Notes:
Shown here is an 81-nucleotide RNA from Amycolatopsis endophytica, a member of the family "SAH (S-adenosyl-L-homocysteine) riboswitch aptamer". The match comes from Rfam's covariance-model search (38 bits). The organism belongs to Amycolatopsis, within Bacteria.

RNA sequence: GAGGCCGAGAGGCGCUGCAACGGACCUCGGGUCCGCCACGCUCGGCUCCCCGUGAAUCCGCAACAAGGGCGCCUCCCAAAC
Numbered sequence: 001g002a003g004g005c006c007g008a009g010a011g012g013c014g015c016u017g018c019a020a021c022g023g024a025c026c027u028c029g030g031g032u033c034c035g036c037c038a039c040g041c042u043c044g045g046c047u048c049c050c051c052g053u054g055a056a057u058c059c060g061c062a063a064c065a066a067g068g069g070c071g072c073c074u075c076c077c078a079a080a081c
Base pairs, nucleotide, nucleotide: 003047004046005045006044007043008042021035022034023033024032025031026030